[Rfam]
RNA sequence: CCUCUUUCAAAACUCCGCCCCGCACCCUAUAUCGGUUCCGCCGGGUUCGCCCGGCUAUGACGAUAAAUUGUGGCGUGCAAUAGAUGCAGCGGACCCGGGGGCAGUACCCGGCGGCUCCACCAUAAGGUGGUGUUCUUGGACACCGUUUCUGACGGGGCCGAACCAGGAUCGACGUGUGUUGAAAAGCGCUUCUUUCGUUCGGAAUGGGACCACCGCGACGGCCCAUACACACAAGUGCCAACGAUAACGAAGCACUCGCUAUUGCGGCGUAAUCCCAAGACCUAACGGUCUAGGAUUAUUCUAAAAUGCGCGGUUGGACCGCACCGGGCAACAGAAGCGGAUUCC
Numbered sequence: 001c002c003u004c005u006u007u008c009a010a011a012a013c014u015c016c017g018c019c020c021c022g023c024a025c026c027c028u029a030u031a032u033c034g035g036u037u038c039c040g041c042c043g044g045g046u047u048c049g050c051c052c053g054g055c056u057a058u059g060a061c062g063a064u065a066a067a068u069u070g071u072g073g074c075g076u077g078c079a080a081u082a083g084a085u086g087c088a089g090c091g092g093a094c095c096c097g098g099g100g101g102c103a104g105u106a107c108c109c110g111g112c113g114g115c116u117c118c119a120c121c122a123u124a125a126g127g128u129g130g131u132g133u134u135c136u137u138g139g140a141c142a143c144c145g146u147u148u149c150u151g152a153c154g155g156g157g158c159c160g161a162a163c164c165a166g167g168a169u170c171g172a173c174g175u176g177u178g179u180u181g182a183a184a185a186g187c188g189c190u191u192c193u194u195u196c197g198u199u200c201g202g203a204a205u206g207g208g209a210c211c212a213c214c215g216c217g218a219c220g221g222c223c224c225a226u227a228c229a230c231a232c233a234a235g236u237g238c239c240a241a242c243g244a245u246a247a248c249g250a251a252g253c254a255c256u257c258g259c260u261a262u263u264g265c266g267g268c269g270u271a272a273u274c275c276c277a278a279g280a281c282c283u284a285a286c287g288g289u290c291u292a293g294g295a296u297u298a299u300u301c302u303a304a305a306a307u308g309c310g311c312g313g314u315u316g317g318a319c320c321g322c323a324c325c326g327g328g329c330a331a332c333a334g335a336a337g338c339g340g341a342u343u344c345c
Stems, first nucleotide, its partner, number of pairs: 040055005059199005070192001072190005085178003089175003095111005112160007200215003205225003210221002311326004317343002320340001
This 345-nucleotide RNA from Sphingomonas tagetis belongs to the Rfam family "Alphaproteobacteria transfer-messenger RNA".
Its family is annotated with RNA catabolic process in the Gene Ontology.
It scores 227 bits against the family's covariance model.
The source organism's lineage runs through Bacteria, Pseudomonadota, Alphaproteobacteria, Sphingomonadaceae and Sphingomonas.
It is annotated as a non-coding RNA gene.